[Rfam]
Nucleotides: 088
Base pairs, nucleotide, nucleotide: 001088002087003086004085005084009080010079011078012077013076014048017047018046019045024042025041026040027039050073051072052071053070054069056067057066058065059064
Number, partner (000 for none) and nucleotide at each position: 001088c002087u003086g004085a005084a006000a007000a008000c009080g010079g011078c012077a013076c014048a015000a016000c017047g018046g019045g020000u021000g022000g023000a024042c025041g026040u027039a028000a029000u030000c031000u032000u033000u034000g035000a036000a037000g038000a039027u040026a041025c042024g043000a044000g045019c046018c047017c048014u049000c050073a051072u052071c053070c054069g055000g056067c057066g058065g059064a060000u061000c062000a063000a064059u065058c066057c067056g068000g069054c070053g071052g072051a073050u074000a075000u076013g077012u078011g079010c080009c081000c082000g083000g084005u085004u086003c087002a088001g
The record is an 88-nucleotide RNA, which matches "L4-Archaeoglobi ribosomal protein leades" in Rfam. The base pairs follow the family's consensus structure, which is taken from published work. The sequence is in the family's curated seed alignment. The literature on the family includes a 2020 paper in BMC Microbiol by Eckert and Weinberg, "Discovery of 20 novel ribosomal leader candidates in bacteria and archaea". By type it is a cis-regulatory leader.